[Rfam]
RNA sequence: AUAAAUUAUAAAGCGCCAGGGCAAAAUAUAAGUGUACCUAUAAUCAAAAGUUAAAUAUGAGAGCUUUUGUAGGGCAAUUUAUUUCUUUGCAGACGAGGAGAAUAGUCAUCGAAAAUAUCGGCGGAUGCUAUUCCGGAUGAGGCUCAUUCGUUAGCUUAUUAUUUAAAACAUUUAGGUAACUAAAUGCACAAAAAUAAUAAGAAUGCCUAAA
Numbered sequence: 001a002u003a004a005a006u007u008a009u010a011a012a013g014c015g016c017c018a019g020g021g022c023a024a025a026a027u028a029u030a031a032g033u034g035u036a037c038c039u040a041u042a043a044u045c046a047a048a049a050g051u052u053a054a055a056u057a058u059g060a061g062a063g064c065u066u067u068u069g070u071a072g073g074g075c076a077a078u079u080u081a082u083u084u085c086u087u088u089g090c091a092g093a094c095g096a097g098g099a100g101a102a103u104a105g106u107c108a109u110c111g112a113a114a115a116u117a118u119c120g121g122c123g124g125a126u127g128c129u130a131u132u133c134c135g136g137a138u139g140a141g142g143c144u145c146a147u148u149c150g151u152u153a154g155c156u157u158a159u160u161a162u163u164u165a166a167a168a169c170a171u172u173u174a175g176g177u178a179a180c181u182a183a184a185u186g187c188a189c190a191a192a193a194a195u196a197a198u199a200a201g202a203a204u205g206c207c208u209a210a211a
Stems, first nucleotide, its partner, number of pairs: 021090005028083001100133005109121004134150006155201007169186007
Description: This 211-nucleotide RNA sequence from Staphylococcus haemolyticus belongs to the Rfam family "glmS glucosamine-6-phosphate activated ribozyme aptamer". The base pairs follow the family's consensus structure, which is taken from published work. By type it is a riboswitch. The literature on the family includes a 2004 paper in Nature by Winkler et al., "Control of gene expression by a natural metabolite-responsive ribozyme".